[Rfam]
RNA sequence: AGUCGCAAGUUUAAGGCCAUAGCAAAAAGUGUUCACUGCGCAACCCUGUCAGAUUCCAGCAAAUCUGCAAAUUCUGCU
Numbered sequence: 001a002g003u004c005g006c007a008a009g010u011u012u013a014a015g016g017c018c019a020u021a022g023c024a025a026a027a028a029g030u031g032u033u034c035a036c037u038g039c040g041c042a043a044c045c046c047u048g049u050c051a052g053a054u055u056c057c058a059g060c061a062a063a064u065c066u067g068c069a070a071a072u073u074c075u076g077c078u
Stems, first nucleotide, its partner, number of pairs: 015045002021078004027073002029041003050067006
Source information: A member of the RNA family "Mammalian CPEB3 ribozyme" from Crocodylus porosus, 78 nucleotides long. NCBI's taxonomy places the organism under Eukaryota, Euteleostomi, Sarcopterygii, Dipnotetrapodomorpha, Crocodylus. The match comes from Rfam's covariance-model search (41 bits).